[Rfam]
RNA: SAM riboswitch aptamer (S box leader)
Organism: Caldanaerobacter subterraneus
RNA sequence: CUCUUAUCAAGAGAGGUGGAGGGAAAGAGCCCGAUGAAACCCGGCAACCUGUCCUUUUAAGGAUAAGGUGCCAAUUCUCUCAGAAGAUUUUUUCUUCUGAAAGAUGAGGG
Number, nucleotide and partner (000 for none) at each position: 001c110002u109003c108004u107005u106006a105007u104008c103009a000010a000011g000012a000013g042014a000015g041016g040017u039018g000019g000020a000021g032022g031023g030024a000025a000026a080027g079028a078029g077030c023031c022032c021033g000034a000035u000036g000037a000038a000039a017040c016041c015042c013043g072044g071045c070046a069047a000048c068049c067050u000051g000052u062053c061054c000055u000056u000057u000058u000059a000060a000061g053062g052063a000064u000065a000066a000067g049068g048069u046070g045071c044072c043073a000074a000075u000076u102077c029078u028079c027080u026081c099082a098083g097084a096085a095086g094087a000088u000089u000090u000091u000092u000093u000094c086095u085096u084097c083098u082099g081100a000101a000102a076103g008104a007105u006106g005107a004108g003109g002110g001